[Rfam]
A member of the RNA family "ASpks TB sRNA" from Rhodococcus spelaei, 75 nucleotides long.
On this family, see Arnvig and Young, Mol Microbiol 2009: "Identification of small RNAs in Mycobacterium tuberculosis".
By type it is an antisense RNA.
The match comes from Rfam's covariance-model search (86 bits).
Pairs were carried over by alignment from the consensus structure, which is taken from published work.
RNA sequence: UUUGACCGACCCCAGCCACACCGGCCGAUCCUCCGGCCGGUCCUGCCCAUAGGUGGCCAGCAACGCCCGCGCCUC
Numbered sequence: 001u002u003u004g005a006c007c008g009a010c011c012c013c014a015g016c017c018a019c020a021c022c023g024g025c026c027g028a029u030c031c032u033c034c035g036g037c038c039g040g041u042c043c044u045g046c047c048c049a050u051a052g053g054u055g056g057c058c059a060g061c062a063a064c065g066c067c068c069g070c071g072c073c074u075c
Stems, first nucleotide, its partner, number of pairs: 015025003031071001033069001038065002043060003047056003